[Rfam]
RNA sequence: UGCUUAUCAAGAGAGACCGAGGGUAAGGCCCUAUGACGUCCGGCAACCCCCAUUUAUAUGGGAAGGUGCCAAGUCCUGCAGAAUGAAAUUCAUUCUGAAAGAUAAGUC
Numbered sequence: 001u002g003c004u005u006a007u008c009a010a011g012a013g014a015g016a017c018c019g020a021g022g023g024u025a026a027g028g029c030c031c032u033a034u035g036a037c038g039u040c041c042g043g044c045a046a047c048c049c050c051c052a053u054u055u056a057u058a059u060g061g062g063a064a065g066g067u068g069c070c071a072a073g074u075c076c077u078g079c080a081g082a083a084u085g086a087a088a089u090u091c092a093u094u095c096u097g098a099a100a101g102a103u104a105a106g107u108c
Stems, first nucleotide, its partner, number of pairs: 002107007013041001015040003021031003026077003042070004047066002049062004074100001079097006
RNA: SAM riboswitch aptamer (S box leader)
Organism: Planococcus rifietoensis